[Rfam]
RNA sequence: AUUGCACACAAAACCCAAAAGUCAUUAUUUUUCACUUUAAUGCCUUUUUUAUAGUGUGCACAAAUGAGCAGUACCUUGUCGCCUUUUGAAACCACUUGUGUUUCACAAAGUGAAAUUGAAGGUACUACAUGG
Numbered sequence: 001a002u003u004g005c006a007c008a009c010a011a012a013a014c015c016c017a018a019a020a021g022u023c024a025u026u027a028u029u030u031u032u033c034a035c036u037u038u039a040a041u042g043c044c045u046u047u048u049u050u051a052u053a054g055u056g057u058g059c060a061c062a063a064a065u066g067a068g069c070a071g072u073a074c075c076u077u078g079u080c081g082c083c084u085u086u087u088g089a090a091a092c093c094a095c096u097u098g099u100g101u102u103u104c105a106c107a108a109a110g111u112g113a114a115a116u117u118g119a120a121g122g123u124a125c126u127a128c129a130u131g132g
Stems, first nucleotide, its partner, number of pairs: 003060007020045002023042005071125007083110004087105006
Dot-bracket structure: ..(((((((..........((.(((((..........))))).))........)))))))..........(((((((.....((((((((((.......)))))).))))........))))))).......
RNA: Small nucleolar RNA SNORA68